The record is a 267-nucleotide RNA from Candidatus Magnetomorum sp. HK-1, which matches "Group II catalytic intron D1-D4-6" in Rfam. Its family is annotated with Group II intron splicing in the Gene Ontology. A search with the family's covariance model found it, with a score of 95 bits.
RNA sequence: GAAAUGGCCUUCUGUAAGGGCUAUCCACCCACCCGUAUCGAGCCUUGGACCCAUGGCGGAGUUGCUCAAAGGUUUAUGCAGCGAACAAGAUGGGUUAAGCAUAGGCAGAGAAUCUUGUAGGCCGCAGGGGUGAUCGCGCACCCUGAAGUGCUGGUACAGCUUCGAAAUUACAAUUGCGGACGCCGAGGGUUUUAACGUGCACCGAAGGCAACACGGAAGCAUUCACUAAAGGCGAGAAUGUGGAGGUCCGCCGGAGUCCACAGGCCG
Numbered sequence: 001g002a003a004a005u006g007g008c009c010u011u012c013u014g015u016a017a018g019g020g021c022u023a024u025c026c027a028c029c030c031a032c033c034c035g036u037a038u039c040g041a042g043c044c045u046u047g048g049a050c051c052c053a054u055g056g057c058g059g060a061g062u063u064g065c066u067c068a069a070a071g072g073u074u075u076a077u078g079c080a081g082c083g084a085a086c087a088a089g090a091u092g093g094g095u096u097a098a099g100c101a102u103a104g105g106c107a108g109a110g111a112a113u114c115u116u117g118u119a120g121g122c123c124g125c126a127g128g129g130g131u132g133a134u135c136g137c138g139c140a141c142c143c144u145g146a147a148g149u150g151c152u153g154g155u156a157c158a159g160c161u162u163c164g165a166a167a168u169u170a171c172a173a174u175u176g177c178g179g180a181c182g183c184c185g186a187g188g189g190u191u192u193u194a195a196c197g198u199g200c201a202c203c204g205a206a207g208g209c210a211a212c213a214c215g216g217a218a219g220c221a222u223u224c225a226c227u228a229a230a231g232g233c234g235a236g237a238a239u240g241u242g243g244a245g246g247u248c249c250g251c252c253g254g255a256g257u258c259c260a261c262a263g264g265c266c267g
Stems, first nucleotide, its partner, number of pairs: 012035001014033001018030003022235001025232001038109002042106004046101002048096007058086001159257006176251006182209003187203002214245001219241006